[Rfam]
RNA sequence: CGGGAUAACCGACGUUAGGGAAUUCGGCAAGUUAGUCCCGUACCUUCGGAAGAAGGGAUGCCUGCCCCUCACAGGGCAGGUCGCAGUGACUCGGACGCUCCAACUGUCUAGUAACAACACAGGUGACCGCAAAUCCGCAAGGACUCGUACGGUCACUGAAUCCUGCCCAGUGCAGGUAUCUGAACACCUCGUACAAGAGGACGAAGGACCUGUCAACGGCGGGGGUAACUAUGACCCUCUUAAGGUAGCGUAGUACCUUGCCGCUUCAGUAGCGGCUUGCAUGAAUGGAUCAAUGAGAGCGUCACUGUCCCAACGUUGGACCCGGUGAACUGUACAUUCCAGUGCGGAGUCUGGAGA
Numbered sequence: 001c002g003g004g005a006u007a008a009c010c011g012a013c014g015u016u017a018g019g020g021a022a023u024u025c026g027g028c029a030a031g032u033u034a035g036u037c038c039c040g041u042a043c044c045u046u047c048g049g050a051a052g053a054a055g056g057g058a059u060g061c062c063u064g065c066c067c068c069u070c071a072c073a074g075g076g077c078a079g080g081u082c083g084c085a086g087u088g089a090c091u092c093g094g095a096c097g098c099u100c101c102a103a104c105u106g107u108c109u110a111g112u113a114a115c116a117a118c119a120c121a122g123g124u125g126a127c128c129g130c131a132a133a134u135c136c137g138c139a140a141g142g143a144c145u146c147g148u149a150c151g152g153u154c155a156c157u158g159a160a161u162c163c164u165g166c167c168c169a170g171u172g173c174a175g176g177u178a179u180c181u182g183a184a185c186a187c188c189u190c191g192u193a194c195a196a197g198a199g200g201a202c203g204a205a206g207g208a209c210c211u212g213u214c215a216a217c218g219g220c221g222g223g224g225g226u227a228a229c230u231a232u233g234a235c236c237c238u239c240u241u242a243a244g245g246u247a248g249c250g251u252a253g254u255a256c257c258u259u260g261c262c263g264c265u266u267c268a269g270u271a272g273c274g275g276c277u278u279g280c281a282u283g284a285a286u287g288g289a290u291c292a293a294u295g296a297g298a299g300c301g302u303c304a305c306u307g308u309c310c311c312a313a314c315g316u317u318g319g320a321c322c323c324g325g326u327g328a329a330c331u332g333u334a335c336a337u338u339c340c341a342g343u344g345c346g347g348a349g350u351c352u353g354g355a356g357a
Stems, first nucleotide, its partner, number of pairs: 001324004009319008018310003035059005044049001060081008082086001094303007101295002105119003122157008130147001134143003160290004165220003170217002172213005179208003187200004221239006240244001260276006338355005
RNA: Archaeal large subunit ribosomal RNA, nucleotides 1718 to 2074